[Rfam]
Nucleotides: 194
Stems, first nucleotide, its partner, number of pairs: 006188012019175001020173002023170002029164003033160001043150007052140003056136009068123006
Number, partner (000 for none) and nucleotide at each position: 001000u002000u003000g004000a005000c006188u007187g008186u009185u010184u011183u012182a013181a014180g015179u016178c017177a018000a019175a020173u021172u022000g023170u024169c025000u026000g027000a028000c029164u030163u031162u032000a033160a034000c035000c036000a037000a038000g039000g040000c041000u042000a043150u044149a045148g046147a047146a048145a049144a050000u051000a052140u053139a054138u055000u056136a057135a058134c059133a060132u061131c062130u063129a064128c065000a066000u067000a068123u069122c070121a071120a072119a073118u074000g075000a076000a077000u078000c079000c080000a081000c082000c083000a084000u085000c086000a087000a088000a089000u090000g091000u092000a093000u094000u095000u096000c097000a098000u099000g100000g101000u102000g103000u104000a105000u106000c107000u108000a109000a110000u111000g112000a113000a114000c115000a116000u117000a118073g119072u120071u121070u122069g123068a124000u125000g126000u127000a128064g129063u130062a131061g132060a133059u134058g135057u136056u137000u138054g139053u140052g141000c142000a143000u144049u145048u146047u147046u148045c149044u150043a151000u152000a153000a154000a155000c156000u157000u158000g159000g160033u161000c162031a163030a164029g165000a166000u167000u168000a169024g170023a171000g172021a173020a174000g175019u176000a177017u178016g179015a180014c181013u182012u183011a184010g185009g186008a187007c188006a189000a190000a191000g192000c193000a194000a